[Rfam]
RNA sequence: CUGGAAUGAUGCAACUUAGCCAAAUCAGACAUUGGAUGUGCUCCAUAGGGUUGUUCGAGUAACUUGCGCUAGCUGUUGGAGUUGAAACAUUUUAUUUGUUACCUCUCCAUCCAUGCAUGUGCAAGUUACAGUUUGCAUCCUAUGUUGAAGCGCAUCUCACUGAUGAUAAAACAGAGAUAGGUUCAUAGCUGACCAGA
Numbered sequence: 001c002u003g004g005a006a007u008g009a010u011g012c013a014a015c016u017u018a019g020c021c022a023a024a025u026c027a028g029a030c031a032u033u034g035g036a037u038g039u040g041c042u043c044c045a046u047a048g049g050g051u052u053g054u055u056c057g058a059g060u061a062a063c064u065u066g067c068g069c070u071a072g073c074u075g076u077u078g079g080a081g082u083u084g085a086a087a088c089a090u091u092u093u094a095u096u097u098g099u100u101a102c103c104u105c106u107c108c109a110u111c112c113a114u115g116c117a118u119g120u121g122c123a124a125g126u127u128a129c130a131g132u133u134u135g136c137a138u139c140c141u142a143u144g145u146u147g148a149a150g151c152g153c154a155u156c157u158c159a160c161u162g163a164u165g166a167u168a169a170a171a172c173a174g175a176g177a178u179a180g181g182u183u184c185a186u187a188g189c190u191g192a193c194c195a196g197a
Stems, first nucleotide, its partner, number of pairs: 001196004
Rfam assigns this 197-nucleotide sequence from Artemisia annua to the family "small nucleolar RNA snoR127". The family's consensus secondary structure was predicted with RNAalifold. By type it is a C/D-box small nucleolar RNA. It scores 43 bits against the family's covariance model.